The record is a 187-nucleotide RNA sequence from Klugiella xanthotipulae, which matches "FMN riboswitch aptamer (RFN element)" in Rfam.
RNA sequence: AAAUGCUCCGGGGUCGGUGAGAAUCCGAACCGGCGGUGAUAGUCCGCGACCCGCGGUUGUUCCCCGCGAUUCAUGGCAGAAAUGCGGUGUCUCGCAGAGAAUAGCCGCGGUUGAUUCGGUGAGAAUCCGAGACCGACGGUGAUGCACCCACACCAGUGGGUGCGAGUCCGGAUGAGAGGAAGCAUGG
Numbered sequence: 001a002a003a004u005g006c007u008c009c010g011g012g013g014u015c016g017g018u019g020a021g022a023a024u025c026c027g028a029a030c031c032g033g034c035g036g037u038g039a040u041a042g043u044c045c046g047c048g049a050c051c052c053g054c055g056g057u058u059g060u061u062c063c064c065c066g067c068g069a070u071u072c073a074u075g076g077c078a079g080a081a082a083u084g085c086g087g088u089g090u091c092u093c094g095c096a097g098a099g100a101a102u103a104g105c106c107g108c109g110g111u112u113g114a115u116u117c118g119g120u121g122a123g124a125a126u127c128c129g130a131g132a133c134c135g136a137c138g139g140u141g142a143u144g145c146a147c148c149c150a151c152a153c154c155a156g157u158g159g160g161u162g163c164g165a166g167u168c169c170g171g172a173u174g175a176g177a178g179g180a181a182g183c184a185u186g187g
Stems, first nucleotide, its partner, number of pairs: 003185005008179002015027003031135002033047004042133002051110012115131005137170003